[Rfam]
RNA: mir-184 microRNA precursor family
RNA sequence: CACAUUACUCUCCUUUGUCAUUCUCUUGUCUUGUGUAAUUUUUGACAACUGGACGGAGAACUGAUAAAGGUGAGUGGUAUG
Numbered sequence: 001c002a003c004a005u006u007a008c009u010c011u012c013c014u015u016u017g018u019c020a021u022u023c024u025c026u027u028g029u030c031u032u033g034u035g036u037a038a039u040u041u042u043u044g045a046c047a048a049c050u051g052g053a054c055g056g057a058g059a060a061c062u063g064a065u066a067a068a069g070g071u072g073a074g075u076g077g078u079a080u081g
Base pairs, nucleotide, nucleotide: 012070013069014068015067016066017065018064019063020062021060022059023058024057025056026055029052030051